[Rfam]
RNA: nhaA-I RNA
Organism: Pseudothauera nasutitermitis
RNA sequence: GGGUGUCCGUUCCAGACCAACGAACGGGCAGGUUUCUCGUGCUGGUCGGGCCGCCGCA
Numbered sequence: 001g002g003g004u005g006u007c008c009g010u011u012c013c014a015g016a017c018c019a020a021c022g023a024a025c026g027g028g029c030a031g032g033u034u035u036c037u038c039g040u041g042c043u044g045g046u047c048g049g050g051c052c053g054c055c056g057c058a
Stems, first nucleotide, its partner, number of pairs: 005029008040058003044055003